[Rfam]
RNA sequence: UCCUGCCUGGCUCCCUGAAUGCCAUCUGAGAAGCACACCACCGUGCCUGGCGUGGCUCCUGGUUGGCAUUGAGGGAGUCAUGCAGGG
Numbered sequence: 001u002c003c004u005g006c007c008u009g010g011c012u013c014c015c016u017g018a019a020u021g022c023c024a025u026c027u028g029a030g031a032a033g034c035a036c037a038c039c040a041c042c043g044u045g046c047c048u049g050g051c052g053u054g055g056c057u058c059c060u061g062g063u064u065g066g067c068a069u070u071g072a073g074g075g076a077g078u079c080a081u082g083c084a085g086g087g
Stems, first nucleotide, its partner, number of pairs: 001087006008080007016072001018070007027061002
RNA: mir-160 microRNA precursor family